Annotation:
Y RNA: a 102-nucleotide RNA from Homo sapiens. A search with the family's covariance model found it, with a score of 45 bits. The family's consensus secondary structure is taken from published work.
[Rfam]
RNA sequence: GGCUAAUAUGAAUGAUGUGAUGUUUACAACUAAUUGAUCACAACCAGUUACAGAUUUCUUUGUCCCUUUUCCGUGCCCACUGCUUCACCUGACUAGCCUUAA
Numbered sequence: 001g002g003c004u005a006a007u008a009u010g011a012a013u014g015a016u017g018u019g020a021u022g023u024u025u026a027c028a029a030c031u032a033a034u035u036g037a038u039c040a041c042a043a044c045c046a047g048u049u050a051c052a053g054a055u056u057u058c059u060u061u062g063u064c065c066c067u068u069u070u071c072c073g074u075g076c077c078c079a080c081u082g083c084u085u086c087a088c089c090u091g092a093c094u095a096g097c098c099u100u101a102a
Stems, first nucleotide, its partner, number of pairs: 001098005007092001010090001014086002017080003022076001029063002032060002
NCBI's taxonomy places the organism under Eukaryota, Opisthokonta, Eutheria, Primates, Homo. It is annotated as a non-coding RNA gene.